[Rfam]
RNA sequence: CACGUCAUACCGCUGAAUUCCCGUCUGCCGCACGGGAAGCGGGGGACCCACGACAACGGGGCGAAUCGCGUACCUGCGCGUAGCGCCGCUCUUUCGGUGCGAGCCCGUCAGCUAACCCCGCAAGCUCGAGAAAGAGGACCG
Numbered sequence: 001c002a003c004g005u006c007a008u009a010c011c012g013c014u015g016a017a018u019u020c021c022c023g024u025c026u027g028c029c030g031c032a033c034g035g036g037a038a039g040c041g042g043g044g045g046a047c048c049c050a051c052g053a054c055a056a057c058g059g060g061g062c063g064a065a066u067c068g069c070g071u072a073c074c075u076g077c078g079c080g081u082a083g084c085g086c087c088g089c090u091c092u093u094u095c096g097g098u099g100c101g102a103g104c105c106c107g108u109c110a111g112c113u114a115a116c117c118c119c120g121c122a123a124g125c126u127c128g129a130g131a132a133a134g135a136g137g138a139c140c141g
Base pairs, nucleotide, nucleotide: 012125013124014123018038019037020036021035022034023033024032039121040120041119042118043117044116049058059106060105061104067080068079069078070077083100084099085098086097
RNA: c-di-AMP riboswitch aptamer (ydaO/yuaA leader)